[Rfam]
RNA sequence: CGUAAACUAUCGCUGAGUUCCAAUGGAAGCGGAGGACCCGUUUUGUUGGGGUGAAUCGCCGUUUGGCGUAGGGGUGCCUACUCCCGAACCCGUCAGCUAACUCCGUAAGCGUGUAGGUGCGUGUGG
Numbered sequence: 001c002g003u004a005a006a007c008u009a010u011c012g013c014u015g016a017g018u019u020c021c022a023a024u025g026g027a028a029g030c031g032g033a034g035g036a037c038c039c040g041u042u043u044u045g046u047u048g049g050g051g052u053g054a055a056u057c058g059c060c061g062u063u064u065g066g067c068g069u070a071g072g073g074g075u076g077c078c079u080a081c082u083c084c085c086g087a088a089c090c091c092g093u094c095a096g097c098u099a100a101c102u103c104c105g106u107a108a109g110c111g112u113g114u115a116g117g118u119g120c121g122u123g124u125g126g
Stems, first nucleotide, its partner, number of pairs: 011111004018028003029106006039048002049091003057068004071085004
The record is a 126-nucleotide RNA sequence from Paenalicyclobacillus mengziensis, which matches "c-di-AMP riboswitch aptamer (ydaO/yuaA leader)" in Rfam. It scores 97 bits against the family's covariance model. The pairing is the family consensus, mapped onto this sequence.